[Rfam]
Nucleotides: 182
Base pairs, nucleotide, nucleotide: 006177007176008175009174010173011172016083017082018081019080020079023076024075033067034066035065036064037063038062087116088115089114090113094109095108096107097106117144118143119142120141121140122139123138125137126136127135128134146167147166148165149164150163151162152161
Number, partner (000 for none) and nucleotide at each position: 001000a002000g003000u004000a005000a006177g007176g008175a009174u010173a011172g012000a013000g014000g015000c016083g017082c018081a019080a020079a021000g022000a023076c024075c025000a026000u027000c028000a029000g030000u031000a032000c033067a034066c035065a036064u037063u038062a039000g040000a041000a042000g043000g044000a045000u046000a047000a048000u049000g050000g051000g052000g053000u054000c055000c056000g057000u058000u059000g060000a061000a062038u063037a064036a065035u066034g067033u068000a069000g070000a071000a072000a073000g074000g075024g076023g077000a078000a079020u080019u081018u082017g083016c084000c085000g086000a087116a088115g089114c090113u091000g092000a093000u094109a095108g096107a097106a098000c099000c100000u101000c102000a103000u104000u105000u106097u107096u108095c109094u110000u111000g112000a113090a114089g115088c116087u117144g118143g119142u120141u121140c122139u123138g124000a125137u126136g127135u128134u129000g130000a131000a132000a133000a134128a135127a136126u137125a138123c139122a140121g141120a142119a143118c144117u145000g146167u147166c148165a149164u150163a151162u152161a153000g154000g155000u156000g157000u158000a159000a160000c161152u162151a163150u164149a165148u166147g167146g168000a169000g170000g171000g172011c173010u174009a175008u176007c177006u178000u179000a180000c181000g182000c